[Rfam]
RNA sequence: CGAGUUGGCAGGGCGGCCGCGACGCCGCGCCACGCGGCGCGGUUUCGAGGAAAGUCCGGACUCCGCAGGGCAGGGUGGUUGCUAACGGCAACCCGGGGUGACCCGCGGGAAAGUGCCACAGAAAACAGACCGCCCGGCGGUACUGAGCCGGUGCCGGUGGCGCCGGCGCAGUGGUCGGGUAAGGGUGAAACGGUGGUGUAAGAGACCACCAGCGUCCCGGGCGACCGGGACGGCUCGGUAAACCCCACCCGGAGCAAGGUCAAGAGGGAGCCUCAGGGCUCCUGCGCAGGCGUUCGAGGGCUGCCCGUCCGAGGCCUGCGGGUAGACCGCUGGAGCCUGUCGGCAACGGCAGGCCGAGAUGGAUGGUCGCCGCCCACGGCCCGGCCGUGGGAACAGAAUCCGGCUUACAUGCCAACUCGUCCU
Dot-bracket structure: ((((((((((((((((((.(((.(((((((......))))))).)))....[[[.[[[[[((((...[[[[.((((((((((.....)))))(((((....)))).)((...(((((............(((((((((.(...............................).)))))))..)).......((((((.......)))))).(((((((((....)))))))).)..)))..)))))))))))))...((((........................((((((......((((.]]]]))))...)))))).....))))......((((((((....))))))))..........)))))))...........................]]]]]]]].).))))))))))....
Shown here is a 423-nucleotide sequence from Prauserella isguenensis, a member of the family "Bacterial RNase P class A". The organism belongs to Prauserella, within Bacteria.